[Rfam]
RNA sequence: UGCCUUUGUGUUGCCCGUUCAUUAUUUUCUACAAUGAAUGUGGUGUCAGACAAGGCAUAUAUUAAGUCUAGUUGGCAUGUGUUUUAGAGUGGGUCAUACACCCUUCUCUUCAUUUCAGCUAGAACAUAC
Numbered sequence: 001u002g003c004c005u006u007u008g009u010g011u012u013g014c015c016c017g018u019u020c021a022u023u024a025u026u027u028u029c030u031a032c033a034a035u036g037a038a039u040g041u042g043g044u045g046u047c048a049g050a051c052a053a054g055g056c057a058u059a060u061a062u063u064a065a066g067u068c069u070a071g072u073u074g075g076c077a078u079g080u081g082u083u084u085u086a087g088a089g090u091g092g093g094u095c096a097u098a099c100a101c102c103c104u105u106c107u108c109u110u111c112a113u114u115u116c117a118g119c120u121a122g123a124a125c126a127u128a129c
Base pairs, nucleotide, nucleotide: 002056003055004054005053006052009048010047012045013044014043015042016040017039018038019037020036021035022034023033068122069121070120071119072118073117074116075115081113082112086107087106091102092101
RNA: Small nucleolar RNA SNORA13